[Rfam]
RNA sequence: CCAGACCCCUCGUGUGGCGUCAUCCUGUGAACCUCCCCAGGGCCGGAAGGCAGCAAGGAUAAGCGGGCUCUGGCGGGUGCGCGGGGGGUCCCUUUC
Numbered sequence: 001c002c003a004g005a006c007c008c009c010u011c012g013u014g015u016g017g018c019g020u021c022a023u024c025c026u027g028u029g030a031a032c033c034u035c036c037c038c039a040g041g042g043c044c045g046g047a048a049g050g051c052a053g054c055a056a057g058g059a060u061a062a063g064c065g066g067g068c069u070c071u072g073g074c075g076g077g078u079g080c081g082c083g084g085g086g087g088g089u090c091c092c093u094u095u096c
Stems, first nucleotide, its partner, number of pairs: 004090011015077001018075005024067005034059003042051003